RNA sequence: AAUAAAGCAGGAUGCUGUGCUAUAUAGUGGCAGUAUCCCCGUAAACUUUAGGAACACCAUGAUCAUCGUUAUUGGGUGAAUCAUUUGGUCAUGUCCAUGUGUUGGACAACUCCAUGCCAAUUGGUUCAGUAAAUGAUGGCACAUUU
Numbered sequence: 001a002a003u004a005a006a007g008c009a010g011g012a013u014g015c016u017g018u019g020c021u022a023u024a025u026a027g028u029g030g031c032a033g034u035a036u037c038c039c040c041g042u043a044a045a046c047u048u049u050a051g052g053a054a055c056a057c058c059a060u061g062a063u064c065a066u067c068g069u070u071a072u073u074g075g076g077u078g079a080a081u082c083a084u085u086u087g088g089u090c091a092u093g094u095c096c097a098u099g100u101g102u103u104g105g106a107c108a109a110c111u112c113c114a115u116g117c118c119a120a121u122u123g124g125u126u127c128a129g130u131a132a133a134u135g136a137u138g139g140c141a142c143a144u145u146u
Stems, first nucleotide, its partner, number of pairs: 005048003011037002014034004063139008077128007
RNA: Small nucleolar RNA snoR74